RNA sequence: GGGCGAGAAAGGCAAACUCGUGGAAACAUAAGGCUGCAAAACUGUAGGGCUUAAGGUCAAGAGAAGGCGAAGCUAGUCAGUUACCGAA
Numbered sequence: 001g002g003g004c005g006a007g008a009a010a011g012g013c014a015a016a017c018u019c020g021u022g023g024a025a026a027c028a029u030a031a032g033g034c035u036g037c038a039a040a041a042c043u044g045u046a047g048g049g050c051u052u053a054a055g056g057u058c059a060a061g062a063g064a065a066g067g068c069g070a071a072g073c074u075a076g077u078c079a080g081u082u083a084c085c086g087a088a
Base pairs, nucleotide, nucleotide: 012037013036017032018031020029021028022027040082041081042080043079047078048077049074051072056068057067058066
Notes:
A member of the RNA family "c-di-GMP-I riboswitch aptamer" from Bacillus cytotoxicus, 88 nucleotides long. Rfam links the family to the GO term cyclic-di-GMP binding. About the family: GEMM was predicted in a large-scale screen for bacterial structured RNA regulatory elements. The base pairs follow the family's consensus structure, which is taken from published work. The organism belongs to Bacillus cytotoxicus, within Bacteria. Rfam's curators put it in the seed alignment.